Rfam assigns this 61-nucleotide RNA from Pristionchus pacificus to the family "mir-8364 microRNA precursor family". The organism belongs to Pristionchus, within Eukaryota.
[Rfam]
RNA sequence: UCUGCAUUCUCCACACUCUCUCACCGACCAGAGAGACGAGAGAGUGUGUGAAAUGAGGAGA
Numbered sequence: 001u002c003u004g005c006a007u008u009c010u011c012c013a014c015a016c017u018c019u020c021u022c023a024c025c026g027a028c029c030a031g032a033g034a035g036a037c038g039a040g041a042g043a044g045u046g047u048g049u050g051a052a053a054u055g056a057g058g059a060g061a
Base pairs, nucleotide, nucleotide: 001059002058003057005055006054007053010050012048013047014046015045016044017043019041020040021039022038
A search with the family's covariance model found it, with a score of 70 bits. The base pairs follow the family's consensus structure, which was predicted with RNAalifold.